[Rfam]
RNA sequence: ACUACGGAGCAAAUGAUGAUAAAUUGGAUCUGACAAGCUAUGCUGAGUUUGUUCAAUCCAACCCUGAGCUUCGUGUU
Dot-bracket structure: (.((((((((.........................................................)))))))).)
RNA: Small nucleolar RNA SNORD69
Organism: Sus scrofa